This 169-nucleotide RNA sequence from Patulibacter medicamentivorans belongs to the Rfam family "c-di-AMP riboswitch aptamer (ydaO/yuaA leader)". Gene Ontology terms of the family: regulation of gene expression and cyclic-di-AMP binding.
RNA sequence: CGGUGCCCCGAGCCGAAUCGCCGGCCUUCAACGUCGGCGAACGGGGGACCCACCGAGAGGAAGGGCCUCCACCCUUCAGCUUCGGGGCAAAUCCACCGCAUCCGGUGGAAGCGCUGCUCUUUCUGCGCUCGCCCGUCAGCUAACCCCGUAGGCCGACGAAAGAGAGCAG
Numbered sequence: 001c002g003g004u005g006c007c008c009c010g011a012g013c014c015g016a017a018u019c020g021c022c023g024g025c026c027u028u029c030a031a032c033g034u035c036g037g038c039g040a041a042c043g044g045g046g047g048a049c050c051c052a053c054c055g056a057g058a059g060g061a062a063g064g065g066c067c068u069c070c071a072c073c074c075u076u077c078a079g080c081u082u083c084g085g086g087g088c089a090a091a092u093c094c095a096c097c098g099c100a101u102c103c104g105g106u107g108g109a110a111g112c113g114c115u116g117c118u119c120u121u122u123c124u125g126c127g128c129u130c131g132c133c134c135g136u137c138a139g140c141u142a143a144c145c146c147c148g149u150a151g152g153c154c155g156a157c158g159a160a161a162g163a164g165a166g167c168a169g
Base pairs, nucleotide, nucleotide: 012153013152014151018040019039020038021037022036023035024034025033041149042148043147044146045145046144051084085134086133087132093108094107095106096105111128112127113126114125